[Rfam]
RNA sequence: GGUAGUAACAGCGUAGUGAAGUGAGAAUCUUCAUCACCGUAUAAGCAAGGUUUUCCUGGCAACGCGUCGUCGACCAGGAGUUAGCCGGUCCUAAGUGUAGUCCGAAGGGAGUAUCACGAAUAGGGAAACGAGUUAAUAUUCUCGUGCCUUGGAUUAUCUAUUACUUUAUAGUAUACGCUUCGAGAUAUGGUGAGCAGAGCCAUCGCUCUGUUUAAUUAUUCAAGGUUUAGGGAGUGUCGUAAUGACGAGAACUAUUCCGAGAUGAGAAUAGCCAGCCAUUGGGUUGGUUCACUAAAUUCUGGGGGACAAUGAAAAUUAUUAUAAAGUGGAUAUUUUAAGUCCGUACCAAGAUCCGACACUGGUGUCUUUAGGUGAGAAGCCUAAGGUGUGU
Number, nucleotide and partner (000 for none) at each position: 001g000002g000003u000004a000005g000006u000007a000008a000009c000010a000011g000012c000013g000014u000015a000016g034017u033018g032019a031020a030021g029022u000023g000024a000025g000026a000027a000028u000029c021030u020031u019032c018033a017034u016035c388036a387037c386038c385039g000040u000041a000042u000043a367044a000045g365046c364047a000048a000049g347050g346051u000052u000053u000054u079055c078056c077057u076058g075059g074060c000061a000062a000063c072064g071065c000066g000067u000068c000069g000070u000071c064072g063073a000074c059075c058076a057077g056078g055079a054080g000081u000082u000083a000084g000085c000086c343087g342088g341089u000090c124091c123092u000093a000094a000095g117096u116097g115098u000099a000100g112101u110102c109103c108104g000105a000106a000107g000108g103109g102110a101111g000112u100113a000114u000115c097116a096117c095118g000119a000120a000121u000122a000123g091124g090125g000126a000127a000128a145129c144130g143131a142132g141133u000134u000135a000136a000137u000138a000139u000140u000141c132142u131143c130144g129145u128146g000147c000148c339149u338150u337151g336152g335153a334154u000155u332156a000157u000158c000159u000160a000161u000162u000163a000164c000165u000166u000167u000168a000169u000170a000171g319172u318173a317174u000175a000176c000177g000178c305179u304180u303181c302182g000183a300184g299185a298186u000187a000188u294189g293190g292191u291192g290193a212194g211195c210196a209197g208198a207199g000200c000201c000202a000203u000204c000205g000206c000207u198208c197209u196210g195211u194212u193213u000214a000215a000216u265217u264218a263219u262220u000221c000222a000223a000224g000225g000226u000227u000228u254229a253230g252231g000232g000233a000234g000235u000236g246237u245238c244239g000240u000241a000242a000243u000244g238245a237246c236247g000248a000249g000250a000251a000252c230253u229254a228255u000256u000257c000258c000259g000260a000261g000262a219263u218264g217265a216266g000267a000268a000269u000270a000271g000272c000273c000274a000275g000276c000277c282278a000279u000280u000281g000282g277283g000284u000285u000286g000287g000288u000289u000290c192291a191292c190293u189294a188295a000296a000297u000298u185299c184300u183301g000302g181303g180304g179305g178306a000307c000308a000309a000310u000311g000312a000313a000314a000315a000316u000317u173318a172319u171320u000321a000322u000323a000324a000325a000326g000327u000328g000329g000330a000331u000332a155333u000334u153335u152336u151337a150338a149339g148340u000341c088342c087343g086344u000345a000346c050347c049348a000349a000350g000351a000352u000353c362354c361355g000356a000357c000358a000359c000360u000361g354362g353363u000364g046365u045366c000367u043368u000369u383370a382371g381372g380373u000374g000375a000376g000377a000378a000379g000380c372381c371382u370383a369384a000385g038386g037387u036388g035389u000390g000391u000
RNA: Archaeal large subunit ribosomal RNA, nucleotides 1407 to 1797
Organism: uncultured marine crenarchaeote AD1000-325-A12